[Rfam]
RNA sequence: GAUCUUAUCGUCUAAUGGUUACGACAUCAACUUUUCAUGUUGAAAAUGUUGGUUCAAUCCCAACUAAGAUUA
Numbered sequence: 001g002a003u004c005u006u007a008u009c010g011u012c013u014a015a016u017g018g019u020u021a022c023g024a025c026a027u028c029a030a031c032u033u034u035u036c037a038u039g040u041u042g043a044a045a046a047u048g049u050u051g052g053u054u055c056a057a058u059c060c061c062a063a064c065u066a067a068g069a070u071u072a
Stems, first nucleotide, its partner, number of pairs: 001071007010025003027043005048064005

This 72-nucleotide sequence from Nakaseomyces glabratus belongs to the Rfam family "tRNA". It is annotated as a transfer RNA.